[Rfam]
RNA sequence: CGAUGCUGAAUUUCUUGGACGUUUCCUCCCUAAACUCGGGCGGCACCCUCGGGCGCCGCCCUUCUUUUUGGCCUGA
Numbered sequence: 001c002g003a004u005g006c007u008g009a010a011u012u013u014c015u016u017g018g019a020c021g022u023u024u025c026c027u028c029c030c031u032a033a034a035c036u037c038g039g040g041c042g043g044c045a046c047c048c049u050c051g052g053g054c055g056c057c058g059c060c061c062u063u064c065u066u067u068u069u070g071g072c073c074u075g076a
Base pairs, nucleotide, nucleotide: 008020011017038061039060040059041058042057043056044055046053
Makes More Granules Regulator RNA (mmgR): a 76-nucleotide RNA from Muricoccus nepalensis. The base pairs follow the family's consensus structure. Its family is annotated with response to nitrogen compound, protein binding and DNA-templated transcription, termination in the Gene Ontology. The literature on the family includes a 2005 paper in Genome Biol by Corbino et al., "Evidence for a second class of S-adenosylmethionine riboswitches and other regulatory RNA motifs in alpha-proteobacteria". The family's RNA type in Rfam is small RNA. The source organism's lineage runs through Bacteria, Pseudomonadati, Alphaproteobacteria, Acetobacterales and Muricoccus.